[Rfam]
RNA sequence: CUUUGAGUCCCGUGCUGCUGCCUGACCCCCGACUUGGCAGCAGCGCGGGGCUCUCUA
Numbered sequence: 001c002u003u004u005g006a007g008u009c010c011c012g013u014g015c016u017g018c019u020g021c022c023u024g025a026c027c028c029c030c031g032a033c034u035u036g037g038c039a040g041c042a043g044c045g046c047g048g049g050g051c052u053c054u055c056u057a
Base pairs, nucleotide, nucleotide: 005053007051008050009049010048011047012046013045014044015043016042017041018040019039020038021037022036
The family of this 57-nucleotide RNA sequence from Rhodococcus sp. WMMA185 is "F6 TB sRNA". The family has 16 seed sequences and 310 matches in Rfam 15.1. The family's consensus secondary structure is taken from published work. It scores 60 bits against the family's covariance model. The literature on the family includes a 2009 paper in Mol Microbiol by Arnvig and Young, "Identification of small RNAs in Mycobacterium tuberculosis".